[Rfam]
Nucleotides: 328
Stems, first nucleotide, its partner, number of pairs: 007024002011020002053270004059264001063160006073151005161217002167211001169209001174205001176203001221307001223306005273293007313326005
Number, partner (000 for none) and nucleotide at each position: 001000a002000u003000a004000a005000c006000u007024g008023g009000u010000u011020u012019a013000a014000c015000u016000c017000a018000a019012u020011g021000c022000c023008c024007c025000u026000a027000u028000a029000g030000u031000a032000a033000u034000u035000a036000a037000u038000u039000u040000u041000u042000a043000c044000u045000a046000u047000a048000g049000a050000g051000a052000a053270u054269c055268g056267g057000g058000u059264g060000a061000a062000u063160u064159g065158c066157a067156a068155g069000g070000a071000u072000a073151a074150c075149u076148c077147u078000a079000g080000c081000u082000g083000u084000c085000u086000c087000c088000u089000a090000a091000u092000u093000u094000u095000u096000u097000u098000u099000u100000u101000u102000u103000g104000u105000u106000u107000g108000u109000u110000u111000a112000a113000a114000a115000a116000a117000a118000a119000c120000a121000a122000a123000a124000a125000u126000a127000a128000g129000c130000c131000a132000a133000a134000g135000g136000c137000g138000g139000g140000a141000c142000a143000a144000a145000u146000a147077a148076g149075a150074g151073u152000c153000a154000a155068u156067u157066u158065g159064c160063a161217g162216c163000g164000a165000a166000g167211u168000c169209u170000u171000u172000c173000a174205c175000a176203g177000u178000a179000c180000a181000a182000c183000u184000a185000a186000a187000u188000u189000a190000g191000u192000u193000u194000a195000g196000u197000c198000g199000c200000c201000c202000c203176c204000g205174g206000c207000g208000g209169a210000a211167g212000a213000a214000a215000c216162g217161u218000u219000c220000a221307a222000c223306g224305a225304c226303u227302a228000a229000g230000a231000g232000g233000u234000g235000a236000g237000c238000c239000g240000u241000a242000c243000u244000a245000g246000c247000a248000a249000u250000a251000a252000a253000c254000c255000u256000c257000a258000c259000a260000c261000g262000a263000g264059c265000u266000c267056c268055c269054g270053a271000c272000a273293a274292u275291a276290a277289a278288c279287u280000u281000u282000u283000u284000u285000u286000u287279a288278g289277u290276u291275u292274a293273u294000u295000g296000a297000u298000g299000a300000u301000a302227u303226a304225g305224u306223c307221u308000g309000a310000a311000c312000c313326u314325a315324g316323u317322c318000g319000u320000a321000a322317g323316a324315u325314u326313a327000g328000g
Group I catalytic intron: a 328-nucleotide RNA sequence from Bondarzewia mesenterica. Pairs were carried over by alignment from the consensus structure, which is taken from published work. About the family: Group I catalytic introns are large self-splicing ribozymes. They catalyse their own excision from mRNA, tRNA and rRNA precursors in a wide range of organisms. The core secondary structure consists of 9 paired regions (P1-P9). These fold to essentially two domains - the P4-P6 domain (formed from the stacking of P5, P4, P6 and P6a helices) and the P3-P9 domain (formed from the P8, P3, P7 and P9 helices). Taxonomically the source falls in Bondarzewia (Eukaryota, Opisthokonta, Agaricomycotina, Bondarzewiaceae). A search with the family's covariance model found it, with a score of 80 bits.